[Rfam]
RNA sequence: CUCAUACAACUGUGCAAGUCAUUCUGGAUAAGAGUGUCUGCUAAAUGGCAAUAA
Numbered sequence: 001c002u003c004a005u006a007c008a009a010c011u012g013u014g015c016a017a018g019u020c021a022u023u024c025u026g027g028a029u030a031a032g033a034g035u036g037u038c039u040g041c042u043a044a045a046u047g048g049c050a051a052u053a054a
Stems, first nucleotide, its partner, number of pairs: 013043001014041003020036006